Shown here is a 129-nucleotide RNA sequence, a member of the family "LOOT RNA". The family's consensus secondary structure is taken from published work. The family's RNA type in Rfam is small RNA.
RNA sequence: AGCCUAAACCAAUUAAGUAAUUAAUGGCAUGGUGAAGCAAGUCCCCGUAAAAGAUAAAGAACUCCUAGUCAGAGUUUGCCUUUUACGGGGCUGUAUCUGGAAACGGAUACAGGUGGGUUAAAAUCCACC
Numbered sequence: 001a002g003c004c005u006a007a008a009c010c011a012a013u014u015a016a017g018u019a020a021u022u023a024a025u026g027g028c029a030u031g032g033u034g035a036a037g038c039a040a041g042u043c044c045c046c047g048u049a050a051a052a053g054a055u056a057a058a059g060a061a062c063u064c065c066u067a068g069u070c071a072g073a074g075u076u077u078g079c080c081u082u083u084u085a086c087g088g089g090g091c092u093g094u095a096u097c098u099g100g101a102a103a104c105g106g107a108u109a110c111a112g113g114u115g116g117g118u119u120a121a122a123a124u125c126c127a128c129c
Base pairs, nucleotide, nucleotide: 002033003032004031009027010026011025013024014023015022043090044089045088046087047086048085049084050083051082052081053080059077060076061075062074063073092111093110094109095108096107097106098105099104112129113128114127115126116125117124